[Rfam]
RNA sequence: UCAGCAAAGGCCAAACCCCAAGCAAUUGGGGGACGGAAAGCCACGGAUCCUCAAAAAGCAAGGACAGCCGGGUUGCCUGGA
Numbered sequence: 001u002c003a004g005c006a007a008a009g010g011c012c013a014a015a016c017c018c019c020a021a022g023c024a025a026u027u028g029g030g031g032g033a034c035g036g037a038a039a040g041c042c043a044c045g046g047a048u049c050c051u052c053a054a055a056a057a058g059c060a061a062g063g064a065c066a067g068c069c070g071g072g073u074u075g076c077c078u079g080g081a
Base pairs, nucleotide, nucleotide: 001081003078004077011036012035016031017030018029019028020027021026034067039074040073041072042071044070045069046068048064049063050062051061
RNA: c-di-GMP-I-GGC riboswitch aptamer
Organism: delta proteobacterium NaphS2